[Rfam]
RNA sequence: GUAGUCGACUGGUGUGUAACGGUUCAACUGAACUGUUCCUUAAGGUUGCCUCUUACGUGCAGUUAUUGGCUUUUGUGGGCCAUUUUGAUGGUUAACGUCUACUUGGAU
Numbered sequence: 001g002u003a004g005u006c007g008a009c010u011g012g013u014g015u016g017u018a019a020c021g022g023u024u025c026a027a028c029u030g031a032a033c034u035g036u037u038c039c040u041u042a043a044g045g046u047u048g049c050c051u052c053u054u055a056c057g058u059g060c061a062g063u064u065a066u067u068g069g070c071u072u073u074u075g076u077g078g079g080c081c082a083u084u085u086u087g088a089u090g091g092u093u094a095a096c097g098u099c100u101a102c103u104u105g106g107a108u
Base pairs, nucleotide, nucleotide: 003051004050006048007047008046009045010044018037019036020035021034023032024031025030067082068081069080070079071078072077